[Rfam]
RNA sequence: GAGCAAUGAUGAAAAAGUUUGCUACUGACCUUUGGAACUAUGAAGGUGUCUACACUUGACCUGAGCUCA
Numbered sequence: 001g002a003g004c005a006a007u008g009a010u011g012a013a014a015a016a017g018u019u020u021g022c023u024a025c026u027g028a029c030c031u032u033u034g035g036a037a038c039u040a041u042g043a044a045g046g047u048g049u050c051u052a053c054a055c056u057u058g059a060c061c062u063g064a065g066c067u068c069a
Stems, first nucleotide, its partner, number of pairs: 001068004013033003017029003
This 69-nucleotide RNA from Loxodonta africana belongs to the Rfam family "Small nucleolar RNA U2-30". For this family Rfam cites "Guide RNAs with 5' Caps and Novel Box C/D snoRNA-like Domains for Modification of snRNAs in Metazoa" (Tycowski et al., Curr Biol, 2004).